[Rfam]
Nucleotides: 057
Stems, first nucleotide, its partner, number of pairs: 019037002022034004
Number, partner (000 for none) and nucleotide at each position: 001000u002000g003000u004000c005000g006000a007000a008000c009000u010000a011000u012000g013000u014000a015000c016000c017000g018000c019037g020036c021000g022034c023033g024032u025031c026000a027000u028000u029000u030000a031025g032024a033023u034022g035000g036020g037019c038000u039000c040000c041000a042000g043000a044000a045000a046000g047000u048000c049000a050000c051000a052000u053000a054000g055000g056000a057000c

The family of this 57-nucleotide RNA from Lozanella enantiophylla is "Plastid-ndhJ 3UTR RNA".
Rfam's curators write: Plastid ndhJ is a non-coding RNA (ncRNA) present in plastids. It was identified as a short stem-loop motif in the 3 prime untranslate region (3UTR) of ndhJ gene.
Lineage of the source: Eukaryota > Tracheophyta > Euphyllophyta > Rosales > Lozanella.
On this family, see Richter et al., Plant Commun 2023: "Retrograde signaling in plants: A critical review focusing on the GUN pathway and beyond".
It is annotated as a cis-regulatory element.
It is one of the family's seed sequences.